The family of this 160-nucleotide RNA sequence from Aspergillus welwitschiae is "A. fumigatus sRNA Afu_254".
It is annotated as a small RNA.
A reference for the family is Jochl et al. (2008), "Small ncRNA transcriptome analysis from Aspergillus fumigatus suggests a novel mechanism for regulation of protein synthesis", Nucleic Acids Res.
Lineage of the source: Eukaryota > Opisthokonta > Pezizomycotina > Aspergillus > Aspergillus subgen. Circumdati.
RNA sequence: AAAGAUACUUUCCCUUACCUCGAAUACUUUCAUAGUAUAUACAGACAUACUACUAUACACCCCAUCUACCACCAUGGCCCCCUGCGAGUGCAAGUGCUGCUCUGGCAGCUGCAACUCCUGCUCUUGCUCUAACUGCAAGGUGUGUACCCUCCCAAAUACU
Numbered sequence: 001a002a003a004g005a006u007a008c009u010u011u012c013c014c015u016u017a018c019c020u021c022g023a024a025u026a027c028u029u030u031c032a033u034a035g036u037a038u039a040u041a042c043a044g045a046c047a048u049a050c051u052a053c054u055a056u057a058c059a060c061c062c063c064a065u066c067u068a069c070c071a072c073c074a075u076g077g078c079c080c081c082c083u084g085c086g087a088g089u090g091c092a093a094g095u096g097c098u099g100c101u102c103u104g105g106c107a108g109c110u111g112c113a114a115c116u117c118c119u120g121c122u123c124u125u126g127c128u129c130u131a132a133c134u135g136c137a138a139g140g141u142g143u144g145u146a147c148c149c150u151c152c153c154a155a156a157u158a159c160u
Base pairs, nucleotide, nucleotide: 083107084106085105090100091099092098111136112135113134120127121126